[Rfam]
RNA: Streptococcus RNA 266
RNA sequence: AAUGAGUUGUUUGACGCUUUUCAUUAUAAGUCAUGUGGGACUUUUUUGAUAAAAUCAAAAAGCCCUAUAACAUCCGCAGUGGAUUUACCCACUACAAAUUAUAGAGCC
Numbered sequence: 001a002a003u004g005a006g007u008u009g010u011u012u013g014a015c016g017c018u019u020u021u022c023a024u025u026a027u028a029a030g031u032c033a034u035g036u037g038g039g040a041c042u043u044u045u046u047u048g049a050u051a052a053a054a055u056c057a058a059a060a061a062g063c064c065c066u067a068u069a070a071c072a073u074c075c076g077c078a079g080u081g082g083a084u085u086u087a088c089c090c091a092c093u094a095c096a097a098a099u100u101a102u103a104g105a106g107c108c
Base pairs, nucleotide, nucleotide: 001025002024003023004022005021006020009017010016028043029042030041031040032039062107063106065104067102068101069100070099073098078093079092080091081090082089